[Rfam]
RNA sequence: CAAAAUGGCCUUUCAGGCAUCCUCUCCCAAAACUUUCAGGCCCGGUUGGCAACGACCGGGCCUUUUUUCUGUCAACG
Numbered sequence: 001c002a003a004a005a006u007g008g009c010c011u012u013u014c015a016g017g018c019a020u021c022c023u024c025u026c027c028c029a030a031a032a033c034u035u036u037c038a039g040g041c042c043c044g045g046u047u048g049g050c051a052a053c054g055a056c057c058g059g060g061c062c063u064u065u066u067u068u069c070u071g072u073c074a075a076c077g
Base pairs, nucleotide, nucleotide: 008018009017010016011015039062040061041060042059043058044057045056046055047054
The family of this 77-nucleotide RNA from Novosphingobium fuchskuhlense is "Makes More Granules Regulator RNA (mmgR)".
Rfam classes the family as a small RNA.
Its family is annotated with DNA-templated transcription, termination, protein binding and response to nitrogen compound in the Gene Ontology.
The family is grouped with related families in Rfam's "suhB sRNA clan".